[Rfam]
RNA sequence: AGGGCUAUAACAACUAUAGCAGAAGUGCUAACGUCACGGCCCUGUUAGAUUCUAACGAACUUGCAAAUUCUGCU
Dot-bracket structure: .............[[..((((((((((.......)))]]......(((.(((....))).)))....)))))))
Numbered sequence: 001a002g003g004g005c006u007a008u009a010a011c012a013a014c015u016a017u018a019g020c021a022g023a024a025g026u027g028c029u030a031a032c033g034u035c036a037c038g039g040c041c042c043u044g045u046u047a048g049a050u051u052c053u054a055a056c057g058a059a060c061u062u063g064c065a066a067a068u069u070c071u072g073c074u
Stems, first nucleotide, its partner, number of pairs: 014039002018074007025037003046063003050059003
Shown here is a 74-nucleotide RNA from Alligator mississippiensis, a member of the family "Mammalian CPEB3 ribozyme". The family's consensus secondary structure is taken from published work.